RNA sequence: CCUUUCUUUGAUACGAACGCGUUCUAUUCACUGCAUCGUUAGACCGGCUAUUAGCUGGACGAUUGAUGAAUGGAGGGGAAAAGAACGCCAGACUAACGCUUUUUUUUCGACAGCGAACCUCAUACUGAGCUAUGUAUUUCAUAUUAAGCAUAUCUUGGUAACUGCGCGGGCGAUACAUCU
Dot-bracket structure: ..................((.((.......((.((.(((((......................)))))..)).))........)).))..................(((...(((.........(((.(.(((((.(.........)))))).).)))......)))...))).......